Source information
Rfam assigns this 57-nucleotide RNA from Chelatococcus asaccharovorans to the family "sul1 RNA". It is annotated as a riboswitch.

RNA sequence: GACGGGACCGGUGAAAAAUCCGGGUGGCUCUUCCGGCCGCUAAUCCGCCGGAUCACG
Dot-bracket structure: .....(.(((((.....).)))).)......((((((.........)))))).....
Numbered sequence: 001g002a003c004g005g006g007a008c009c010g011g012u013g014a015a016a017a018a019u020c021c022g023g024g025u026g027g028c029u030c031u032u033c034c035g036g037c038c039g040c041u042a043a044u045c046c047g048c049c050g051g052a053u054c055a056c057g
Stems, first nucleotide, its partner, number of pairs: 006025001008023004012018001032052006
It scores 56 bits against the family's covariance model. The family's consensus secondary structure is taken from published work.